[Rfam]
RNA sequence: UAGGAAAUCCUAGUACCUCUGCCUAGUCUGGCAUGCGUCUCUAGUAAUGGAGGGGUAUGAAGCCCAGAUGACAAAGCCCUUAGCGUGAAAUGGAGAUAGCUCUAGGGGCUGGCAAACUUCUAUGGCUAAUGAAAGU
Numbered sequence: 001u002a003g004g005a006a007a008u009c010c011u012a013g014u015a016c017c018u019c020u021g022c023c024u025a026g027u028c029u030g031g032c033a034u035g036c037g038u039c040u041c042u043a044g045u046a047a048u049g050g051a052g053g054g055g056u057a058u059g060a061a062g063c064c065c066a067g068a069u070g071a072c073a074a075a076g077c078c079c080u081u082a083g084c085g086u087g088a089a090a091u092g093g094a095g096a097u098a099g100c101u102c103u104a105g106g107g108g109c110u111g112g113c114a115a116a117c118u119u120c121u122a123u124g125g126c127u128a129a130u131g132a133a134a135g136u
Stems, first nucleotide, its partner, number of pairs: 002018003007014001027068005032059005038053006081104003091098002110128004
Dot-bracket structure: .(((..(......).)))........((((((((((.((((((....)))))).)))))....)))))............(((.......((....))...))).....((((...........))))........
Shown here is a 136-nucleotide sequence from Monoraphidium neglectum, a member of the family "Group II catalytic intron D1-D4-7".
Taxonomically the source falls in Monoraphidium (Eukaryota, Chlorophyta, Sphaeropleales, Selenastraceae).
Group II introns are found in rRNA, tRNA and mRNA of organelles in fungi, plants and protists, and also in mRNA in bacteria.
Pairs were carried over by alignment from the consensus structure.
Rfam 15.1 lists 1,296 matches to the family in 705 species.